A member of the RNA family "mir-204 microRNA precursor family" from Gambusia affinis, 89 nucleotides long.
The family's consensus secondary structure was predicted with RNAalifold.
It scores 65 bits against the family's covariance model.
Nucleotides: 089
Stems, first nucleotide, its partner, number of pairs: 018071006026063001029060004035055004
Number, partner (000 for none) and nucleotide at each position: 001000a002000g003000g004000u005000g006000a007000u008000c009000u010000g011000c012000g013000g014000g015000g016000u017000u018071u019070c020069c021068c022067u023066u024000u025000a026063u027000c028000a029060u030059c031058c032057u033000a034000u035055g036054c037053c038052u039000g040000g041000a042000g043000g044000u045000g046000u047000c048000u049000g050000u051000a052038a053037g054036g055035c056000a057032g058031g059030g060029a061000c062000a063026g064000c065000a066023a067022g068021g069020g070019g071018a072000g073000c074000c075000u076000c077000a078000g079000c080000u081000g082000u083000c084000a085000c086000c087000c088000c089000u
On this family, see Murchison et al., Genome Res 2008: "Conservation of small RNA pathways in platypus". Its family is annotated with miRNA-mediated post-transcriptional gene silencing and RISC complex in the Gene Ontology.